[Rfam]
RNA sequence: UGUCGCUGCCCUCCUUGGGCGUUUCCUCCCUAGACUUGGGGCCGUUCAAUCUUUUGGAUGGCCUCUUUUUUUGCCCUC
Numbered sequence: 001u002g003u004c005g006c007u008g009c010c011c012u013c014c015u016u017g018g019g020c021g022u023u024u025c026c027u028c029c030c031u032a033g034a035c036u037u038g039g040g041g042c043c044g045u046u047c048a049a050u051c052u053u054u055u056g057g058a059u060g061g062c063c064u065c066u067u068u069u070u071u072u073g074c075c076c077u078c
Base pairs, nucleotide, nucleotide: 008020009019010018011017040063041062042061043060044059045058046057047056048055
RNA: Makes More Granules Regulator RNA (mmgR)
Organism: Rhodomicrobium vannielii